U8 small nucleolar RNA: a 134-nucleotide RNA from Acipenser ruthenus.
The source organism's lineage runs through Eukaryota, Eumetazoa, Actinopterygii, Actinopteri and Acipenser.
[Rfam]
RNA sequence: UCGUCAGUGAGGUAUAUCCUUACCUGUUACUCCAGCAAUGGAGCAGCAGAACAUGAUGAAUGGAGGCUGAUGAGACGGGGAUUAACCGCUCCUGCUCGCCGAGGACUGCAACUCCUCUCCGAGCCCAUUCUGAU
Numbered sequence: 001u002c003g004u005c006a007g008u009g010a011g012g013u014a015u016a017u018c019c020u021u022a023c024c025u026g027u028u029a030c031u032c033c034a035g036c037a038a039u040g041g042a043g044c045a046g047c048a049g050a051a052c053a054u055g056a057u058g059a060a061u062g063g064a065g066g067c068u069g070a071u072g073a074g075a076c077g078g079g080g081a082u083u084a085a086c087c088g089c090u091c092c093u094g095c096u097c098g099c100c101g102a103g104g105a106c107u108g109c110a111a112c113u114c115c116u117c118u119c120c121g122a123g124c125c126c127a128u129u130c131u132g133a134u
Base pairs, nucleotide, nucleotide: 024049025048026047028045030043031042032041033040072091073090076088077087078086095123096122097121098120101117102116103115